[Rfam]
RNA sequence: AUCUUAUUAAGAGUGGUGGAGGGACUGGCCCUUUGAAACCCGGCAACCUAAAAAACAUUUUGAUUUAAUGUUUUUAGUUGGUGCUAAUUCCUGCAGGAGUUUAUCCUGAAAAAUAAGAA
Numbered sequence: 001a002u003c004u005u006a007u008u009a010a011g012a013g014u015g016g017u018g019g020a021g022g023g024a025c026u027g028g029c030c031c032u033u034u035g036a037a038a039c040c041c042g043g044c045a046a047c048c049u050a051a052a053a054a055a056c057a058u059u060u061u062g063a064u065u066u067a068a069u070g071u072u073u074u075u076a077g078u079u080g081g082u083g084c085u086a087a088u089u090c091c092u093g094c095a096g097g098a099g100u101u102u103a104u105c106c107u108g109a110a111a112a113a114u115a116a117g118a119a
Stems, first nucleotide, its partner, number of pairs: 002118007013041001015040003021031003025093001027091002042085004047081002049077001051075009089111001094108005
SAM riboswitch aptamer (S box leader): a 119-nucleotide RNA from Clostridium uliginosum.
The source organism's lineage runs through Bacteria, Bacillati, Clostridia, Clostridiaceae and Clostridium.